Rfam assigns this 112-nucleotide sequence from Caenorhabditis bovis to the family "Small nucleolar RNA U6-47". Pairs were carried over by alignment from the consensus structure, which was predicted with WAR. It is annotated as a C/D-box small nucleolar RNA. It scores 57 bits against the family's covariance model. The family has 5 seed sequences and 18 matches in Rfam 15.1. The literature on the family includes a 2006 paper in Nucleic Acids Res by Zemann et al., "Evolution of small nucleolar RNAs in nematodes". The source organism's lineage runs through Eukaryota, Bilateria, Nematoda, Rhabditomorpha and Caenorhabditis.

RNA sequence: AGGCUAUGACGAUAUUGAUUCACUGACGUUAUGACGGGUACAUCUACCGUAUCCUACGUUCGGUUACGGUAGCCGUCGAAUGAACGAGCGUCUAAUCUUCUCUCUGAGCCUU
Numbered sequence: 001a002g003g004c005u006a007u008g009a010c011g012a013u014a015u016u017g018a019u020u021c022a023c024u025g026a027c028g029u030u031a032u033g034a035c036g037g038g039u040a041c042a043u044c045u046a047c048c049g050u051a052u053c054c055u056a057c058g059u060u061c062g063g064u065u066a067c068g069g070u071a072g073c074c075g076u077c078g079a080a081u082g083a084a085c086g087a088g089c090g091u092c093u094a095a096u097c098u099u100c101u102c103u104c105u106g107a108g109c110c111u112u
Base pairs, nucleotide, nucleotide: 001111002110003109004108